[Rfam]
RNA sequence: GGCUCGGAAUCAUGCGAUCGCAACGCCUCAACCUUGUCAGGUCCGGAAGGAAGCAGCAAUACGGGAUGCUUGCGAUAGGCGUGAUCUCCGGGUCACCC
Numbered sequence: 001g002g003c004u005c006g007g008a009a010u011c012a013u014g015c016g017a018u019c020g021c022a023a024c025g026c027c028u029c030a031a032c033c034u035u036g037u038c039a040g041g042u043c044c045g046g047a048a049g050g051a052a053g054c055a056g057c058a059a060u061a062c063g064g065g066a067u068g069c070u071u072g073c074g075a076u077a078g079g080c081g082u083g084a085u086c087u088c089c090g091g092g093u094c095a096c097c098c
Stems, first nucleotide, its partner, number of pairs: 004091005009085006017076006026065003034059004042051003
RNA: Bacterial small signal recognition particle RNA